[Rfam]
RNA sequence: UCUCCUCAUGAUACGUACGUCUCUUAUUCACUGUACUGUCUUUAAUCAAUGGACAAGUAGAGGGGAAAAAGAUGACCAGAAUAAGUUUUUGUCAAGAACUAUACCUCAUACUGAUUUCAGAGACAUUUUAACUCUGAUACUCGGUAACUACGUAAUUGAGACAUUC
Numbered sequence: 001u002c003u004c005c006u007c008a009u010g011a012u013a014c015g016u017a018c019g020u021c022u023c024u025u026a027u028u029c030a031c032u033g034u035a036c037u038g039u040c041u042u043u044a045a046u047c048a049a050u051g052g053a054c055a056a057g058u059a060g061a062g063g064g065g066a067a068a069a070a071g072a073u074g075a076c077c078a079g080a081a082u083a084a085g086u087u088u089u090u091g092u093c094a095a096g097a098a099c100u101a102u103a104c105c106u107c108a109u110a111c112u113g114a115u116u117u118c119a120g121a122g123a124c125a126u127u128u129u130a131a132c133u134c135u136g137a138u139a140c141u142c143g144g145u146a147a148c149u150a151c152g153u154a155a156u157u158g159a160g161a162c163a164u165u166c
Stems, first nucleotide, its partner, number of pairs: 019076002022072002031062002034059002037055005092159004098153002111144003115139001117137005